[Rfam]
RNA sequence: UUAUAAUGAUGUUAUUGCCAUGCUAAUACCGAGGGAUCAUAUAUACGGGAACCGUAUAUUUGGAUUUCGCUGAGUUAAACUUUCCAUGUCUCUGAAUAAU
Numbered sequence: 001u002u003a004u005a006a007u008g009a010u011g012u013u014a015u016u017g018c019c020a021u022g023c024u025a026a027u028a029c030c031g032a033g034g035g036a037u038c039a040u041a042u043a044u045a046c047g048g049g050a051a052c053c054g055u056a057u058a059u060u061u062g063g064a065u066u067u068c069g070c071u072g073a074g075u076u077a078a079a080c081u082u083u084c085c086a087u088g089u090c091u092c093u094g095a096a097u098a099a100u
Base pairs, nucleotide, nucleotide: 001099002098003097004096042058043057044056045055046054
Rfam assigns this 100-nucleotide sequence from Ooceraea biroi to the family "Small nucleolar RNA U6-53/MBII-28". The pairing is the family consensus, mapped onto this sequence. A search with the family's covariance model found it, with a score of 48 bits. Rfam classes the family as a C/D-box small nucleolar RNA. On this family, see Huttenhofer et al., EMBO J 2001: "RNomics: an experimental approach that identifies 201 candidates for novel, small, non-messenger RNAs in mouse". The organism belongs to Ooceraea, within Eukaryota. The family has 25 seed sequences and 780 matches in Rfam 15.1.